[Rfam]
RNA sequence: AUAGUUUUAAAAGCGCCAGGGCUAUUUCUCGGACGGAGAAGAGAAAUAGUUGACGAGGAGGAGGUUUAAUCGAGUAUUCGGCGGAUGCCUCCCGGUUGCAGCACCUCAACUGUAGUGUUGGAAGUGAAAACGUAGAGGCAACUCUAUGCACAACCACUUCUUACAAGGUGUAUA
Numbered sequence: 001a002u003a004g005u006u007u008u009a010a011a012a013g014c015g016c017c018a019g020g021g022c023u024a025u026u027u028c029u030c031g032g033a034c035g036g037a038g039a040a041g042a043g044a045a046a047u048a049g050u051u052g053a054c055g056a057g058g059a060g061g062a063g064g065u066u067u068a069a070u071c072g073a074g075u076a077u078u079c080g081g082c083g084g085a086u087g088c089c090u091c092c093c094g095g096u097u098g099c100a101g102c103a104c105c106u107c108a109a110c111u112g113u114a115g116u117g118u119u120g121g122a123a124g125u126g127a128a129a130a131c132g133u134a135g136a137g138g139c140a141a142c143u144c145u146a147u148g149c150a151c152a153a154c155c156a157c158u159u160c161u162u163a164c165a166a167g168g169u170g171u172a173u174a
Stems, first nucleotide, its partner, number of pairs: 020051008029042001060092005070081004093112006117164002120161004131148007

Shown here is a 174-nucleotide RNA from Alkalibacillus haloalkaliphilus, a member of the family "glmS glucosamine-6-phosphate activated ribozyme aptamer". Its family is annotated with regulation of gene expression and catalytic activity in the Gene Ontology. The base pairs follow the family's consensus structure, which is taken from published work. It scores 98 bits against the family's covariance model.